Shown here is a 78-nucleotide sequence from Schistosoma bovis, a member of the family "mir-3492 microRNA precursor family". Its family is annotated with miRNA-mediated post-transcriptional gene silencing and RISC complex in the Gene Ontology. The source organism's lineage runs through Eukaryota, Eumetazoa, Protostomia, Neodermata and Schistosoma.
[Rfam]
RNA sequence: AUCCUUCUAAACCCGUACCGAAAUCUCAUCAGACACCAGACCAUCAGGACUGAUGAGACUGCCGAGGUAAGUGAAGUG
Numbered sequence: 001a002u003c004c005u006u007c008u009a010a011a012c013c014c015g016u017a018c019c020g021a022a023a024u025c026u027c028a029u030c031a032g033a034c035a036c037c038a039g040a041c042c043a044u045c046a047g048g049a050c051u052g053a054u055g056a057g058a059c060u061g062c063c064g065a066g067g068u069a070a071g072u073g074a075a076g077u078g
Base pairs, nucleotide, nucleotide: 003076005074006073008071011068012067013066019064020063021060024058025057026056027055028054029053030052